[Rfam]
RNA: Lysine riboswitch aptamer
Organism: Clostridium liquoris
RNA sequence: UUAAUGGAUAGAGGCGCUAUAUUUAAUAGUAUCUGUACUGAUGUAAGCAAGAUGAGGUACAGUGAAAGGAAAUAUUGCCGAAGCGUGCAGCUAAUGCUUUAAUGCUGUAUGGCUGGUCUUACUUCAGAAUAUGAAUAAGACUGUCACAAAGUGUUUUGUGGAGAGCUAUCAUUCAA
Numbered sequence: 001u002u003a004a005u006g007g008a009u010a011g012a013g014g015c016g017c018u019a020u021a022u023u024u025a026a027u028a029g030u031a032u033c034u035g036u037a038c039u040g041a042u043g044u045a046a047g048c049a050a051g052a053u054g055a056g057g058u059a060c061a062g063u064g065a066a067a068g069g070a071a072a073u074a075u076u077g078c079c080g081a082a083g084c085g086u087g088c089a090g091c092u093a094a095u096g097c098u099u100u101a102a103u104g105c106u107g108u109a110u111g112g113c114u115g116g117u118c119u120u121a122c123u124u125c126a127g128a129a130u131a132u133g134a135a136u137a138a139g140a141c142u143g144u145c146a147c148a149a150a151g152u153g154u155u156u157u158g159u160g161g162a163g164a165g166c167u168a169u170c171a172u173u174c175a176a
Stems, first nucleotide, its partner, number of pairs: 007170005016078002019075006033062007082114003085110007115142007123135004144161007